[Rfam]
A member of the RNA family "Alpha operon ribosome binding site" from Candidatus Enterovibrio escicola, 104 nucleotides long.
RNA sequence: AGUGGUUUUCCGCUGCGUAUCCUCGACGGGCUCUGCAGCGGUUCUUCUUAAAAAAGUACUAGGAGUGAAUAGUGGCUCGUAUAGCAGGCAUUAACAUUCCUGAU
Number, nucleotide and partner (000 for none) at each position: 001a048002g047003u000004g045005g044006u000007u000008u041009u040010c000011c000012g000013c000014u000015g000016c000017g000018u000019a000020u000021c088022c087023u086024c000025g000026a000027c079028g078029g077030g076031c000032u000033c000034u000035g000036c102037a101038g000039c000040g009041g008042u000043u000044c005045u004046u000047c002048u001049u000050a000051a000052a000053a000054a000055a000056g000057u000058a000059c000060u000061a000062g000063g000064a000065g000066u000067g000068a000069a000070u000071a000072g000073u000074g000075g000076c030077u029078c028079g027080u000081a000082u000083a000084g000085c000086a023087g022088g021089c000090a000091u000092u000093a000094a000095c000096a000097u000098u000099c000100c000101u037102g036103a000104u000